A member of the RNA family "permuted transfer-messenger RNA" from Pontivivens insulae, 230 nucleotides long. Rfam links the family to the GO term RNA catabolic process. Pairs were carried over by alignment from the consensus structure, which is taken from published work. About the family: Bacterial tmRNA, also known as 10Sa RNA or SsrA, is named for its dual tRNA and mRNA-like properties. Its role is to liberate the mRNA from a stalled ribosome. To accomplish this part of the tmRNA is used as a reading frame that ends in a translation stop signal. A search with the family's covariance model found it, with a score of 150 bits.

RNA sequence: GGCGAUAAACGCGCAUGUAAUAAGCGGCUCGGACCCGGGGGCGGUACCCGGCGGCUCCACCAAUCACGGCUAUGCUGUGAUCACCCCGGUCAUUUGGCGGGCGGAUGGGGCCGAAACAGGAUCGACGGACGUCUAAAGAUGUUGCUUUCGCUCGGUGAGAUACCACCGUUAUCGGUUCAAACAGUAUAGUUGCAAAUGACAACCAUGCUCCGGUCGCAGUCGCCGCGUAA
Numbered sequence: 001g002g003c004g005a006u007a008a009a010c011g012c013g014c015a016u017g018u019a020a021u022a023a024g025c026g027g028c029u030c031g032g033a034c035c036c037g038g039g040g041g042c043g044g045u046a047c048c049c050g051g052c053g054g055c056u057c058c059a060c061c062a063a064u065c066a067c068g069g070c071u072a073u074g075c076u077g078u079g080a081u082c083a084c085c086c087c088g089g090u091c092a093u094u095u096g097g098c099g100g101g102c103g104g105a106u107g108g109g110g111c112c113g114a115a116a117c118a119g120g121a122u123c124g125a126c127g128g129a130c131g132u133c134u135a136a137a138g139a140u141g142u143u144g145c146u147u148u149c150g151c152u153c154g155g156u157g158a159g160a161u162a163c164c165a166c167c168g169u170u171a172u173c174g175g176u177u178c179a180a181a182c183a184g185u186a187u188a189g190u191u192g193c194a195a196a197u198g199a200c201a202a203c204c205a206u207g208c209u210c211c212g213g214u215c216g217c218a219g220u221c222g223c224c225g226c227g228u229a230a
Stems, first nucleotide, its partner, number of pairs: 001152005013142004025131002029128003035051005052113007153168004

Record summary
NCBI's taxonomy places the organism under Bacteria, Pseudomonadati, Alphaproteobacteria, Paracoccaceae, Pontivivens.